[Rfam]
RNA sequence: UCGCCGCUUGCGGGAGAGACCGGCCGAAAGGCCGGCGCCGAAGGAGCAACCGCCCCGGAAACUCUCAGGCAAAAGGACCGCGCGGCGCAA
Numbered sequence: 001u002c003g004c005c006g007c008u009u010g011c012g013g014g015a016g017a018g019a020c021c022g023g024c025c026g027a028a029a030g031g032c033c034g035g036c037g038c039c040g041a042a043g044g045a046g047c048a049a050c051c052g053c054c055c056c057g058g059a060a061a062c063u064c065u066c067a068g069g070c071a072a073a074a075g076g077a078c079c080g081c082g083c084g085g086c087g088c089a090a
Stems, first nucleotide, its partner, number of pairs: 007084001009082005020035004037070003040066002044064003050058002
This 90-nucleotide sequence from Aureimonas sp. Leaf324 belongs to the Rfam family "Glycine riboswitch aptamer".
Rfam links the family to the GO term glycine biosynthetic process.
This family represents the bacterial glycine riboswitch.
The base pairs follow the family's consensus structure.
Lineage of the source: Bacteria > Pseudomonadati > Pseudomonadota > Alphaproteobacteria > Aureimonas.